The record is a 549-nucleotide part of an RNA from Oryzias sinensis, which matches "Eukaryotic large subunit ribosomal RNA" in Rfam. Lineage of the source: Eukaryota > Neopterygii > Atherinomorphae > Oryziinae > Oryzias. On this family, see Yusupov et al., Science 2001: "Crystal structure of the ribosome at 5.5 A resolution". A search with the family's covariance model found it, with a score of 2942 bits.
[Rfam]
RNA sequence: CAGGUGGAGUUGAACUGUAAGCUCCGGGGAUUCAGCUGGUGAGUGUGUCGUGGGCUUGGUCAUUUUUGGCCGGCCUCUAGAGUCCGCUUAGCUGCGGGUCCUUGCUCUUUCGGGAGUAGGGAUGUGCGUUGCGCUUAACAAGUGCUGUGCGCUCUGGAGGUUGCCGGGCUGGCUCGCUAGUGCACUUUCUCGGAGUGGUCACCACGACCGGCGUUGUUGCCUUACUGCUGUAGUCAAACCGGUCAGGUUUGGUCCUUGUGGCUGAAUUUGAUCGGGAUGGCAGGUAGCUCAUUGGUUGGCUUGCCAGCCUUUGGGUGUAAUAGCUGGCUGCAGUGGUUUUGUGCAAUACGUCGGAGACGGCGGCUUAAGGUGUGUGCUUUUGUGUCGUGGGCUGGCAGUGUCGAGUUUGACUGGCGUGUUUACCUGCUUCGGUGGGUCUGUCGGUAGCUCGGUGCUGUUUGGCUUGCGGUUGCAUUAGUGAUGCCGUGGAUGGGCCCAUAGUCUGUGGUGUAGCAGCAAACGAUCCACCUGACCCGUCUUGAAACACGG
Numbered sequence: 001c002a003g004g005u006g007g008a009g010u011u012g013a014a015c016u017g018u019a020a021g022c023u024c025c026g027g028g029g030a031u032u033c034a035g036c037u038g039g040u041g042a043g044u045g046u047g048u049c050g051u052g053g054g055c056u057u058g059g060u061c062a063u064u065u066u067u068g069g070c071c072g073g074c075c076u077c078u079a080g081a082g083u084c085c086g087c088u089u090a091g092c093u094g095c096g097g098g099u100c101c102u103u104g105c106u107c108u109u110u111c112g113g114g115a116g117u118a119g120g121g122a123u124g125u126g127c128g129u130u131g132c133g134c135u136u137a138a139c140a141a142g143u144g145c146u147g148u149g150c151g152c153u154c155u156g157g158a159g160g161u162u163g164c165c166g167g168g169c170u171g172g173c174u175c176g177c178u179a180g181u182g183c184a185c186u187u188u189c190u191c192g193g194a195g196u197g198g199u200c201a202c203c204a205c206g207a208c209c210g211g212c213g214u215u216g217u218u219g220c221c222u223u224a225c226u227g228c229u230g231u232a233g234u235c236a237a238a239c240c241g242g243u244c245a246g247g248u249u250u251g252g253u254c255c256u257u258g259u260g261g262c263u264g265a266a267u268u269u270g271a272u273c274g275g276g277a278u279g280g281c282a283g284g285u286a287g288c289u290c291a292u293u294g295g296u297u298g299g300c301u302u303g304c305c306a307g308c309c310u311u312u313g314g315g316u317g318u319a320a321u322a323g324c325u326g327g328c329u330g331c332a333g334u335g336g337u338u339u340u341g342u343g344c345a346a347u348a349c350g351u352c353g354g355a356g357a358c359g360g361c362g363g364c365u366u367a368a369g370g371u372g373u374g375u376g377c378u379u380u381u382g383u384g385u386c387g388u389g390g391g392c393u394g395g396c397a398g399u400g401u402c403g404a405g406u407u408u409g410a411c412u413g414g415c416g417u418g419u420u421u422a423c424c425u426g427c428u429u430c431g432g433u434g435g436g437u438c439u440g441u442c443g444g445u446a447g448c449u450c451g452g453u454g455c456u457g458u459u460u461g462g463c464u465u466g467c468g469g470u471u472g473c474a475u476u477a478g479u480g481a482u483g484c485c486g487u488g489g490a491u492g493g494g495c496c497c498a499u500a501g502u503c504u505g506u507g508g509u510g511u512a513g514c515a516g517c518a519a520a521c522g523a524u525c526c527a528c529c530u531g532a533c534c535c536g537u538c539u540u541g542a543a544a545c546a547c548g549g
Base pairs, nucleotide, nucleotide: 001531002530003529004528005527006526007525008524009521010520011518012517017196022195023194024193025192026191027190028189029188030187200510201509202508203507204506205505206504534549535548536547537546